[Rfam]
RNA: Plastid-psbM 3UTR RNA
RNA sequence: GAGACGACAGUAUGGUAGAAGGUACAUACUACCAUACUAUCUAGUAUUGUCAUUGUACUGUAUAAAGUUUACUGU
Numbered sequence: 001g002a003g004a005c006g007a008c009a010g011u012a013u014g015g016u017a018g019a020a021g022g023u024a025c026a027u028a029c030u031a032c033c034a035u036a037c038u039a040u041c042u043a044g045u046a047u048u049g050u051c052a053u054u055g056u057a058c059u060g061u062a063u064a065a066a067g068u069u070u071a072c073u074g075u
Stems, first nucleotide, its partner, number of pairs: 006041002009038010020027001